[Rfam]
RNA: mir-156 microRNA precursor family
Organism: Handroanthus impetiginosus
RNA sequence: GUGACAGAAGAGAGUGAGCACACAUGGUGUUUUCUUGCAUGAAUGACUGCACAUGCUUGAAGCUAUGGGUGCUCACUCUCUGGCUGUCAC
Numbered sequence: 001g002u003g004a005c006a007g008a009a010g011a012g013a014g015u016g017a018g019c020a021c022a023c024a025u026g027g028u029g030u031u032u033u034c035u036u037g038c039a040u041g042a043a044u045g046a047c048u049g050c051a052c053a054u055g056c057u058u059g060a061a062g063c064u065a066u067g068g069g070u071g072c073u074c075a076c077u078c079u080c081u082g083g084c085u086g087u088c089a090c
Stems, first nucleotide, its partner, number of pairs: 001090007010080012023067003